Description
Rfam assigns this 74-nucleotide RNA sequence from Thauera sp. 27 to the family "DUF3085 RNA". Pairs were carried over by alignment from the consensus structure, which is taken from published work. It scores 65 bits against the family's covariance model. Taxonomically the source falls in Thauera (Bacteria, Pseudomonadati, Pseudomonadota, Rhodocyclales).
RNA sequence: CGGUAGCUGGUUCCACCGAGCUCUCUUGAGCGAACCCAGCCGUCAGUCCUUCCUGGACCUCAACCCACCGCGGG
Numbered sequence: 001c002g003g004u005a006g007c008u009g010g011u012u013c014c015a016c017c018g019a020g021c022u023c024u025c026u027u028g029a030g031c032g033a034a035c036c037c038a039g040c041c042g043u044c045a046g047u048c049c050u051u052c053c054u055g056g057a058c059c060u061c062a063a064c065c066c067a068c069c070g071c072g073g074g
Stems, first nucleotide, its partner, number of pairs: 001018004006040005020031003046058004